The record is a 450-nucleotide part of an RNA from Halorubellus sp. JP-L1, which matches "Archaeal large subunit ribosomal RNA" in Rfam.
A search with the family's covariance model found it, with a score of 2805 bits.
The source organism's lineage runs through Archaea, Methanobacteriati, Methanobacteriota, Halobacteriales and Halorubellus.
The base pairs follow the family's consensus structure, which is taken from published work.
RNA sequence: CCAAUCGAAACAUGUCGAAGCAUGACCUCUGUCGAGGUAGCUCGUGGGGUAGAGCAACCGAUUGGGAGCGUCCACUUCGAGAGAAGUGGACCUCCCUGUCAAACUCCAAACCUACGGGCGCCGCUGACACAGGGAGUCCGGUGUGCGGGGUAAGCCUGUGCACCAUGAGGGAGACAACCCAGAGCCGGGUUAAGGUCCCCAAGUGUGGAUUAAGUGCGAUCGAAGGUGGUCUCAAGCCCUAGACAGCCGGGAGGUGAGCUUAGAAGCAGCUACCCUCUAAGAAAAGCGUAACAGCUUACCGGCCGAGGUUUGAGGCGCCCAAAAUGAUCGGGGCUCAAAUCCACCACCGAGACCUGGCCGCACCCCCCAUAGGGGUGAUCGAUUAGAUUGGCGCUCUGUAUGGGUGGAAGCACGGCCGAGAGGUCGUGUGGACCAUAUAGUGACGAAAAU
Numbered sequence: 001c002c003a004a005u006c007g008a009a010a011c012a013u014g015u016c017g018a019a020g021c022a023u024g025a026c027c028u029c030u031g032u033c034g035a036g037g038u039a040g041c042u043c044g045u046g047g048g049g050u051a052g053a054g055c056a057a058c059c060g061a062u063u064g065g066g067a068g069c070g071u072c073c074a075c076u077u078c079g080a081g082a083g084a085a086g087u088g089g090a091c092c093u094c095c096c097u098g099u100c101a102a103a104c105u106c107c108a109a110a111c112c113u114a115c116g117g118g119c120g121c122c123g124c125u126g127a128c129a130c131a132g133g134g135a136g137u138c139c140g141g142u143g144u145g146c147g148g149g150g151u152a153a154g155c156c157u158g159u160g161c162a163c164c165a166u167g168a169g170g171g172a173g174a175c176a177a178c179c180c181a182g183a184g185c186c187g188g189g190u191u192a193a194g195g196u197c198c199c200c201a202a203g204u205g206u207g208g209a210u211u212a213a214g215u216g217c218g219a220u221c222g223a224a225g226g227u228g229g230u231c232u233c234a235a236g237c238c239c240u241a242g243a244c245a246g247c248c249g250g251g252a253g254g255u256g257a258g259c260u261u262a263g264a265a266g267c268a269g270c271u272a273c274c275c276u277c278u279a280a281g282a283a284a285a286g287c288g289u290a291a292c293a294g295c296u297u298a299c300c301g302g303c304c305g306a307g308g309u310u311u312g313a314g315g316c317g318c319c320c321a322a323a324a325u326g327a328u329c330g331g332g333g334c335u336c337a338a339a340u341c342c343a344c345c346a347c348c349g350a351g352a353c354c355u356g357g358c359c360g361c362a363c364c365c366c367c368c369a370u371a372g373g374g375g376u377g378a379u380c381g382a383u384u385a386g387a388u389u390g391g392c393g394c395u396c397u398g399u400a401u402g403g404g405u406g407g408a409a410g411c412a413c414g415g416c417c418g419a420g421a422g423g424u425c426g427u428g429u430g431g432a433c434c435a436u437a438u439a440g441u442g443a444c445g446a447a448a449a450u
Base pairs, nucleotide, nucleotide: 001391002390003389004388005387006386011024012023013022014021015020026136027134028133029132030131031130032129036122037121038120040119041118042117043116044115045114046113047112052107053105054104060100061099062098064096065095066094067093068092073088074087075086076085077084078083140164141163142162143161144160145159146158147157148156169180170179171178184358185357186356187355188354189353190352194348195347196346203345205344206343207342208341209340210339225319226318227317229316230315231314232313233312234311235310236309237308238307246303247302248301249300250299252276253275254274257271258270259269277281282297286295287294359381360380361377362376363375364374365373392445394442396440397439398438399437400436401435402434403433410429411428412427413426414425415424416423417422